[Rfam]
The family of this 110-nucleotide RNA sequence from Actibacterium lipolyticum is "Guanidine-I riboswitch aptamer".
RNA sequence: GCGCAGGAAGCUUAGGGUUCCGCUGCCCCAUGCGGCAGGUCUGGUCCAAGAAGCUUCACCCACGUGGCAAAUUCCGCGCGGGCACACGGCGGGCCAAAAUCCCGGGAGAU
Numbered sequence: 001g002c003g004c005a006g007g008a009a010g011c012u013u014a015g016g017g018u019u020c021c022g023c024u025g026c027c028c029c030a031u032g033c034g035g036c037a038g039g040u041c042u043g044g045u046c047c048a049a050g051a052a053g054c055u056u057c058a059c060c061c062a063c064g065u066g067g068c069a070a071a072u073u074c075c076g077c078g079c080g081g082g083c084a085c086a087c088g089g090c091g092g093g094c095c096a097a098a099a100u101c102c103c104g105g106g107a108g109a110u
Stems, first nucleotide, its partner, number of pairs: 007057006015047002020044002022041001023038005059082003063078005085105001087108001091103003

The match comes from Rfam's covariance-model search (82 bits).